[Rfam]
RNA: c-di-GMP-I riboswitch aptamer
Organism: Pseudodesulfovibrio hydrargyri
RNA sequence: AUACGGAUUUGCCAACUCCCACGGAAGGGAGGCGGAAAACCACGGGUCCCUCUGGAUUGAGCGUGACAUGGGUCACAGGGACGGCCGGGCUGCCUUA
Numbered sequence: 001a002u003a004c005g006g007a008u009u010u011g012c013c014a015a016c017u018c019c020c021a022c023g024g025a026a027g028g029g030a031g032g033c034g035g036a037a038a039a040c041c042a043c044g045g046g047u048c049c050c051u052c053u054g055g056a057u058u059g060a061g062c063g064u065g066a067c068a069u070g071g072g073u074c075a076c077a078g079g080g081a082c083g084g085c086c087g088g089g090c091u092g093c094c095u096u097a
Base pairs, nucleotide, nucleotide: 012035013034017030018029019028020027038091040089041088043087044086045085046082047081048080049079050078051077